[Rfam]
RNA: ZMP/ZTP riboswitch aptamer (pfl RNA motif)
Organism: Vitreoscilla filiformis
RNA sequence: AACGGUUCGCGCAACUGGCGAUAGGGUGUCAGGCCGGCCCGCACACGGCGGCUGGCACCACGAGGUGGAUCACCACCGGGGAGCGCGAGAUGGCCUGAUCGCCAUCGCCAAAGCCGUUCGCCUGGGCAACCGCC
Numbered sequence: 001a002a003c004g005g006u007u008c009g010c011g012c013a014a015c016u017g018g019c020g021a022u023a024g025g026g027u028g029u030c031a032g033g034c035c036g037g038c039c040c041g042c043a044c045a046c047g048g049c050g051g052c053u054g055g056c057a058c059c060a061c062g063a064g065g066u067g068g069a070u071c072a073c074c075a076c077c078g079g080g081g082a083g084c085g086c087g088a089g090a091u092g093g094c095c096u097g098a099u100c101g102c103c104a105u106c107g108c109c110a111a112a113g114c115c116g117u118u119c120g121c122c123u124g125g126g127c128a129a130c131c132g133c134c
Stems, first nucleotide, its partner, number of pairs: 003092002006089007015080002017122005065076004113127003